RNA sequence: AAAAGAAAGCAGAAGCGCCCGCUUCUCACCUCGUCUGACAACAGUCGGCAGGUUGACAUGGUAAACGACAAAGCUGUUUGGACAGCUUUUUACUGGCGGGGCAUUCUACUGGAUGCCCCGCCUUUUUCAUGCAG
Number, nucleotide and partner (000 for none) at each position: 001a000002a000003a000004a000005g000006a000007a000008a000009g000010c000011a026012g025013a024014a023015g022016c021017g000018c000019c000020c000021g016022c015023u014024u013025c012026u011027c000028a053029c052030c051031u000032c000033g000034u000035c048036u047037g046038a045039c044040a000041a000042c000043a000044g039045u038046c037047g036048g035049c000050a000051g030052g029053u028054u000055g000056a000057c000058a000059u000060g000061g000062u000063a000064a000065a000066c000067g000068a000069c000070a000071a000072a000073g000074c000075u000076g000077u000078u000079u000080g000081g000082a000083c000084a000085g000086c000087u000088u000089u000090u000091u000092a000093c000094u000095g122096g121097c120098g119099g118100g117101g116102c115103a114104u113105u112106c111107u000108a000109c000110u000111g106112g105113a104114u103115g102116c101117c100118c099119c098120g097121c096122c095123u000124u000125u000126u000127u000128c000129a000130u000131g000132c000133a000134g000